Notes:
The record is a 54-nucleotide RNA sequence from Clarias magur, which matches "UnaL2 LINE 3' element" in Rfam. Taxonomically the source falls in Clarias (Eukaryota, Neopterygii, Characiphysae, Siluroidei). The match comes from Rfam's covariance-model search (56 bits).
RNA sequence: UAAAGCACUUUUUGUAAGUCGCUCUGUAUAAGAGCGUCUGCCAAAUGCCUAAAU
Numbered sequence: 001u002a003a004a005g006c007a008c009u010u011u012u013u014g015u016a017a018g019u020c021g022c023u024c025u026g027u028a029u030a031a032g033a034g035c036g037u038c039u040g041c042c043a044a045a046u047g048c049c050u051a052a053a054u
Stems, first nucleotide, its partner, number of pairs: 013043001014041003020036006